[Rfam]
RNA sequence: UGCGGCCAAGGUGAUGGUGUUCCACCUUAUCAACCGCCCUGCAUGAGAGAGGGACGAUGGCGCCUACGAAUUA
Numbered sequence: 001u002g003c004g005g006c007c008a009a010g011g012u013g014a015u016g017g018u019g020u021u022c023c024a025c026c027u028u029a030u031c032a033a034c035c036g037c038c039c040u041g042c043a044u045g046a047g048a049g050a051g052g053g054a055c056g057a058u059g060g061c062g063c064c065u066a067c068g069a070a071u072u073a
Stems, first nucleotide, its partner, number of pairs: 010026004016064006037053003

The record is a 73-nucleotide RNA sequence from Puia dinghuensis, which matches "Fluoride riboswitch aptamer (crcB RNA motif)" in Rfam. The match comes from Rfam's covariance-model search (45 bits). The organism belongs to Puia, within Bacteria.